[Rfam]
RNA sequence: AUGCAUCUAUUUGACAUGCCUGGAGCAGUUACUAUCUGCUAAGGUUUCCAAUACAGAUGCAAGAAAAAAGUCCUUGCACUUUCUGUCCGGUUGUGGCAGUCCAGGUUGAAUGGGAGAAUACAGGG
Numbered sequence: 001a002u003g004c005a006u007c008u009a010u011u012u013g014a015c016a017u018g019c020c021u022g023g024a025g026c027a028g029u030u031a032c033u034a035u036c037u038g039c040u041a042a043g044g045u046u047u048c049c050a051a052u053a054c055a056g057a058u059g060c061a062a063g064a065a066a067a068a069a070g071u072c073c074u075u076g077c078a079c080u081u082u083c084u085g086u087c088c089g090g091u092u093g094u095g096g097c098a099g100u101c102c103a104g105g106u107u108g109a110a111u112g113g114g115a116g117a118a119u120a121c122a123g124g125g
Stems, first nucleotide, its partner, number of pairs: 002061007012050002016047001018045003024040005071117002074114002079108001082105004087099001089097001091095001
A member of the RNA family "Small nucleolar RNA SNORA31" from Phocoena sinus, 125 nucleotides long. ACA31 (SNORA31) belongs to the H/ACA class of snoRNAs which are thought to guide the sites of modification of uridines to pseudouridines. A search with the family's covariance model found it, with a score of 43 bits. Rfam 15.1 lists 2,094 matches to the family in 626 species.